This 133-nucleotide RNA sequence from Xenopus laevis belongs to the Rfam family "Small nucleolar RNA SNORA84". It is annotated as an H/ACA-box small nucleolar RNA.
RNA sequence: GCCCUGUGGUUCCCAGACCUGACAUUUCCAUGCAGUACUCUGGUGUUAUUAAAUGGGCAGAAAUAAAAGCUGUGAUACUUUGCAUGGGGCAUUGUGCUGUACUUGUCCCCAUAGCCCGGUCACAUUAACAUUU
Numbered sequence: 001g002c003c004c005u006g007u008g009g010u011u012c013c014c015a016g017a018c019c020u021g022a023c024a025u026u027u028c029c030a031u032g033c034a035g036u037a038c039u040c041u042g043g044u045g046u047u048a049u050u051a052a053a054u055g056g057g058c059a060g061a062a063a064u065a066a067a068a069g070c071u072g073u074g075a076u077a078c079u080u081u082g083c084a085u086g087g088g089g090c091a092u093u094g095u096g097c098u099g100u101a102c103u104u105g106u107c108c109c110c111a112u113a114g115c116c117c118g119g120u121c122a123c124a125u126u127a128a129c130a131u132u133u
Stems, first nucleotide, its partner, number of pairs: 001058004011045001013043005019035003072123005082115002084112004088107004094102001
Notes
The organism belongs to Xenopus, within Eukaryota. For this family Rfam cites "Experimental RNomics: identification of 140 candidates for small non-messenger RNAs in the plant Arabidopsis thaliana" (Marker et al., Curr Biol, 2002). Pairs were carried over by alignment from the consensus structure, which was predicted with WAR. Its family is annotated with nucleolus and RNA processing in the Gene Ontology. A search with the family's covariance model found it, with a score of 58 bits.